[Rfam]
RNA sequence: CUCCCCGAAAGCUAUUUAGGUAGCGCCUCGGACGAACACCAUUGGGGGUAGAGCACUGUUUCGGCUAGGGGGUCACACCGACUUACCAAACCGAGGCAAACUGACGAAUACCGAUGAGUGAUAUCCGGGAGACACACGGCGGGUGCUAACGUCCGUCGUGGAAAGGGAAACAACCCAGACCGCCAGCUAAGGCCCCAAAUUCCUAGUUAAGUGGGAAACGAGGUGGGAAGGCACAGACAGCUAGGAGGUUGGCUUAGAAGCAGCCACCCUUUAAAGAAAGCGUAAUAGCUCACUAGUCGAGUCGGCCUGCGCGGAAGAUGUAACGGGGCUCAAACUAGGAGCCGAAGCUGCGGAUUUAAUUGUUUCAAUUAAGUGGUAGGGGAGCGUUGUGUAAGCCUGAGAAGGUGCACUGUAAGGUGUGCUGGAGGUAUCACAAGAGCGAAU
Numbered sequence: 001c002u003c004c005c006c007g008a009a010a011g012c013u014a015u016u017u018a019g020g021u022a023g024c025g026c027c028u029c030g031g032a033c034g035a036a037c038a039c040c041a042u043u044g045g046g047g048g049u050a051g052a053g054c055a056c057u058g059u060u061u062c063g064g065c066u067a068g069g070g071g072g073u074c075a076c077a078c079c080g081a082c083u084u085a086c087c088a089a090a091c092c093g094a095g096g097c098a099a100a101c102u103g104a105c106g107a108a109u110a111c112c113g114a115u116g117a118g119u120g121a122u123a124u125c126c127g128g129g130a131g132a133c134a135c136a137c138g139g140c141g142g143g144u145g146c147u148a149a150c151g152u153c154c155g156u157c158g159u160g161g162a163a164a165g166g167g168a169a170a171c172a173a174c175c176c177a178g179a180c181c182g183c184c185a186g187c188u189a190a191g192g193c194c195c196c197a198a199a200u201u202c203c204u205a206g207u208u209a210a211g212u213g214g215g216a217a218a219c220g221a222g223g224u225g226g227g228a229a230g231g232c233a234c235a236g237a238c239a240g241c242u243a244g245g246a247g248g249u250u251g252g253c254u255u256a257g258a259a260g261c262a263g264c265c266a267c268c269c270u271u272u273a274a275a276g277a278a279a280g281c282g283u284a285a286u287a288g289c290u291c292a293c294u295a296g297u298c299g300a301g302u303c304g305g306c307c308u309g310c311g312c313g314g315a316a317g318a319u320g321u322a323a324c325g326g327g328g329c330u331c332a333a334a335c336u337a338g339g340a341g342c343c344g345a346a347g348c349u350g351c352g353g354a355u356u357u358a359a360u361u362g363u364u365u366c367a368a369u370u371a372a373g374u375g376g377u378a379g380g381g382g383a384g385c386g387u388u389g390u391g392u393a394a395g396c397c398u399g400a401g402a403a404g405g406u407g408c409a410c411u412g413u414a415a416g417g418u419g420u421g422c423u424g425g426a427g428g429u430a431u432c433a434c435a436a437g438a439g440c441g442a443a444u
Stems, first nucleotide, its partner, number of pairs: 001384006011024005026131001027129006036122001040116006051105001052102002057098003061094004068087002070084005135160010165176003180353004185349003191343003200340001202339006219313002223310005230303003240297005246270003251265003271275001276291001280289002354374008385439001387436005395429003404423008

Shown here is a 444-nucleotide part of an RNA from Lwoffella lincolnii, a member of the family "Bacterial large subunit ribosomal RNA". Its family is annotated with ribosome and structural constituent of ribosome in the Gene Ontology. The match comes from Rfam's covariance-model search (2788 bits). The base pairs follow the family's consensus structure, which is taken from published work.